[Rfam]
Annotation:
Rfam assigns this 118-nucleotide RNA sequence from Mikania micrantha to the family "U5 spliceosomal RNA". The family has 180 seed sequences and 28,527 matches in Rfam 15.1. The family's RNA type in Rfam is spliceosomal small nuclear RNA. Its family is annotated with spliceosomal tri-snRNP complex assembly and U5 snRNP in the Gene Ontology.
RNA sequence: AGCCAUGCAAUGAGCACAAAGCGAACUAUUCUUUCGCCUUUUACUAAAGAAUACCGUGUGCUUGUUGCUUAAAGUGGCAUACGGUAAUUUUUGGAGAGUUUUUUUUUUAAAAAAAACU
Numbered sequence: 001a002g003c004c005a006u007g008c009a010a011u012g013a014g015c016a017c018a019a020a021g022c023g024a025a026c027u028a029u030u031c032u033u034u035c036g037c038c039u040u041u042u043a044c045u046a047a048a049g050a051a052u053a054c055c056g057u058g059u060g061c062u063u064g065u066u067g068c069u070u071a072a073a074g075u076g077g078c079a080u081a082c083g084g085u086a087a088u089u090u091u092u093g094g095a096g097a098g099u100u101u102u103u104u105u106u107u108u109a110a111a112a113a114a115a116a117c118u
Stems, first nucleotide, its partner, number of pairs: 003077004008067011027053008095118001098117006